[Rfam]
RNA sequence: CUGUACGGUGCUAACCCCGGGCUUGUCUGAUUACUACCUUGAAGAAGGAAGCCCCAAUGCCUGUGCUAGAUCCACCAUGCCAUUCAGUGUUGCAGGCUAUGACAAAUCUUGUGAUUGGUCUGUGUCAAAGCAAUGGAUACAGAU
Numbered sequence: 001c002u003g004u005a006c007g008g009u010g011c012u013a014a015c016c017c018c019g020g021g022c023u024u025g026u027c028u029g030a031u032u033a034c035u036a037c038c039u040u041g042a043a044g045a046a047g048g049a050a051g052c053c054c055c056a057a058u059g060c061c062u063g064u065g066c067u068a069g070a071u072c073c074a075c076c077a078u079g080c081c082a083u084u085c086a087g088u089g090u091u092g093c094a095g096g097c098u099a100u101g102a103c104a105a106a107u108c109u110u111g112u113g114a115u116u117g118g119u120c121u122g123u124g125u126c127a128a129a130g131c132a133a134u135g136g137a138u139a140c141a142g143a144u
Stems, first nucleotide, its partner, number of pairs: 003066006010060002019054005024048001026045003080136005088127002091124006098113002
The record is a 144-nucleotide RNA sequence from Dichanthelium oligosanthes, which matches "small nucleolar RNA snoR134" in Rfam.
On this family, see Chen and Wu, Nucleic Acids Res 2009: "Mining small RNA sequencing data: a new approach to identify small nucleolar RNAs in Arabidopsis".
The source organism's lineage runs through Eukaryota, Streptophyta, Poales, Poaceae and Dichanthelium.
Gene Ontology terms of the family: RNA processing and nucleolus.
Rfam 15.1 lists 792 matches to the family in 228 species.